A member of the RNA family "Eukaryotic large subunit ribosomal RNA" from Coccidioides posadasii, 283 nucleotides of a longer RNA.

[Rfam]
RNA sequence: AAGUCUAAUAUUCAUGUGAGUGUUCAGAUGUUAAAUCUGUGCACACAGUAAAAGUAAACAGAGAUGGAAGCCUGCAAGAGUGUAUUAUCAACUGAUUCUGAAGUCUUCAGAUGAAUUUGAGUAAAAGUAUAGCUGUUGGAAUCUGAAAAAUGGUGAACUAUGUCUGAAUAAAGUGAAGCCAGAGAAAACUCUGGUGAAGACUCACAGCAGUUCUGAUGUGAAAAUCAAUCAUCAAAUUUGAAUAUAGAAGUAAAAGACUAAUCAAACCAUCUGAUAGCUGGUU
Numbered sequence: 001a002a003g004u005c006u007a008a009u010a011u012u013c014a015u016g017u018g019a020g021u022g023u024u025c026a027g028a029u030g031u032u033a034a035a036u037c038u039g040u041g042c043a044c045a046c047a048g049u050a051a052a053a054g055u056a057a058a059c060a061g062a063g064a065u066g067g068a069a070g071c072c073u074g075c076a077a078g079a080g081u082g083u084a085u086u087a088u089c090a091a092c093u094g095a096u097u098c099u100g101a102a103g104u105c106u107u108c109a110g111a112u113g114a115a116u117u118u119g120a121g122u123a124a125a126a127g128u129a130u131a132g133c134u135g136u137u138g139g140a141a142u143c144u145g146a147a148a149a150a151u152g153g154u155g156a157a158c159u160a161u162g163u164c165u166g167a168a169u170a171a172a173g174u175g176a177a178g179c180c181a182g183a184g185a186a187a188a189c190u191c192u193g194g195u196g197a198a199g200a201c202u203c204a205c206a207g208c209a210g211u212u213c214u215g216a217u218g219u220g221a222a223a224a225u226c227a228a229u230c231a232u233c234a235a236a237u238u239u240g241a242a243u244a245u246a247g248a249a250g251u252a253a254a255a256g257a258c259u260a261a262u263c264a265a266a267c268c269a270u271c272u273g274a275u276a277g278c279u280g281g282u283u
Stems, first nucleotide, its partner, number of pairs: 005139006012132001014130004020044003025039005048055002063089005070081002091122002093119003096115003103108001142281002145278001150270005158247006165240004169235001172202003178195007207232001210229001212228001215226002249259003
Description: Lineage of the source: Eukaryota > Dikarya > Eurotiomycetidae > Coccidioides > Coccidioides posadasii.